[Rfam]
The record is a 63-nucleotide RNA from Devosia pacifica, which matches "terC RNA" in Rfam. Lineage of the source: Bacteria > Pseudomonadota > Hyphomicrobiales > Devosiaceae > Devosia. The match comes from Rfam's covariance-model search (41 bits).
RNA sequence: AUGCGUGACCGGGCCCCUCUGGCGCCGAUGCCAUCAGCAUCGACGUGAUGUCGGUUCACAGCA
Numbered sequence: 001a002u003g004c005g006u007g008a009c010c011g012g013g014c015c016c017c018u019c020u021g022g023c024g025c026c027g028a029u030g031c032c033a034u035c036a037g038c039a040u041c042g043a044c045g046u047g048a049u050g051u052c053g054g055u056u057c058a059c060a061g062c063a
Stems, first nucleotide, its partner, number of pairs: 007056006022046003026042006